[Rfam]
Shown here is an 87-nucleotide sequence from Capsicum baccatum, a member of the family "Small nucleolar RNA R11/Z151". Rfam links the family to the GO terms RNA processing and nucleolus. Lineage of the source: Eukaryota > Viridiplantae > Magnoliopsida > Solanales > Capsicum. A reference for the family is Barneche et al. (2001), "Identification of 66 box C/D snoRNAs in Arabidopsis thaliana: extensive gene duplications generated multiple isoforms predicting new ribosomal RNA 2'-O-methylation sites", J Mol Biol.
RNA sequence: UGGCUUAUGAUGAUACAUAUAAUUAUCUUAGCGGAUUUCAGUGAGAUUUAAUUAUCAAUGAUCUGUUUGUUACACACACUGAGGUCC
Numbered sequence: 001u002g003g004c005u006u007a008u009g010a011u012g013a014u015a016c017a018u019a020u021a022a023u024u025a026u027c028u029u030a031g032c033g034g035a036u037u038u039c040a041g042u043g044a045g046a047u048u049u050a051a052u053u054a055u056c057a058a059u060g061a062u063c064u065g066u067u068u069g070u071u072a073c074a075c076a077c078a079c080u081g082a083g084g085u086c087c
Base pairs, nucleotide, nucleotide: 002086003085004084005083